[Rfam]
This 65-nucleotide RNA from Neptunicoccus cionae belongs to the Rfam family "L2-Alphaproteobacteria ribosomal protein leader". For this family Rfam cites "Discovery of 20 novel ribosomal leader candidates in bacteria and archaea" (Eckert and Weinberg, BMC Microbiol, 2020).

RNA sequence: UGGAACCUUCGGGGUCCUUAACCAUAGCAGGCUCGUUUGCCUGCGCUAUAUACGGAAGACAGUAA
Numbered sequence: 001u002g003g004a005a006c007c008u009u010c011g012g013g014g015u016c017c018u019u020a021a022c023c024a025u026a027g028c029a030g031g032c033u034c035g036u037u038u039g040c041c042u043g044c045g046c047u048a049u050a051u052a053c054g055g056a057a058g059a060c061a062g063u064a065a
Stems, first nucleotide, its partner, number of pairs: 002017003006014003027044006